[Rfam]
Nucleotides: 106
Base pairs, nucleotide, nucleotide: 010025011024012023014021063106064105065104066103067102068101069100070099072097073096074095076093077092078091079090080089
Number, partner (000 for none) and nucleotide at each position: 001000u002000g003000u004000c005000g006000a007000a008000g009000u010025u011024c012023c013000a014021u015000c016000u017000a018000c019000a020000a021014a022000c023012g024011g025010a026000u027000a028000a029000u030000a031000c032000u033000u034000u035000g036000g037000u038000a039000u040000u041000a042000g043000u044000g045000u046000a047000u048000a049000c050000g051000a052000g053000u054000c055000g056000u057000u058000g059000a060000a061000g062000g063106a064105u065104c066103a067102a068101u069100a070099c071000c072097a073096a074095a075000c076093u077092u078091c079090u080089u081000g082000a083000u084000a085000g086000a087000a088000c089080a090079a091078g092077a093076a094000g095074u096073u097072u098000g099070g100069u101068a102067u103066u104065g105064a106063u
Description:
Shown here is a 106-nucleotide RNA sequence from Lindera glauca, a member of the family "Plastid-psbA-1 3UTR RNA". By type it is a cis-regulatory element. Rfam's curators write: Plastid psbA-1 is a non-coding RNA (ncRNA) present in plastids. It was identified in inverted repeat sequences in the 3 prime untranslate region (3UTR) of photosystem II quinone-binding protein (psbA). The family's consensus secondary structure was predicted with LocARNA. Clan: Plastid-psbA 3UTR RNA clan.